[Rfam]
RNA sequence: AGAUCGAAAGGGCAAAUCCGUUGAAAGGCGGAGACGCAAAGUCACGGAUCUAAAGCUGAAAAGCUAUGACAGCCGGGCUACCGAA
Numbered sequence: 001a002g003a004u005c006g007a008a009a010g011g012g013c014a015a016a017u018c019c020g021u022u023g024a025a026a027g028g029c030g031g032a033g034a035c036g037c038a039a040a041g042u043c044a045c046g047g048a049u050c051u052a053a054a055g056c057u058g059a060a061a062a063g064c065u066a067u068g069a070c071a072g073c074c075g076g077g078c079u080a081c082c083g084a085a
Stems, first nucleotide, its partner, number of pairs: 012037002017032006040079004045075003049069002055064003
RNA: c-di-GMP-I riboswitch aptamer